[Rfam]
Nucleotides: 067
Base pairs, nucleotide, nucleotide: 001066002065003064004063005062006061007060010022011021012020024040025039026038027037028036046059047058048057049056050055
Number, partner (000 for none) and nucleotide at each position: 001066u002065u003064a004063a005062u006061u007060g008000a009000a010022a011021c012020c013000a014000a015000a016000a017000a018000g019000a020012g021011g022010u023000a024040u025039a026038u027037c028036a029000c030000u031000g032000u033000u034000a035000a036028u037027g038026a039025u040024a041000u042000a043000a044000u045000u046059g047058a048057a049056u050055a051000u052000u053000a054000u055050u056049a057048u058047u059046c060007c061006a062005a063004u064003u065002a066001a067000g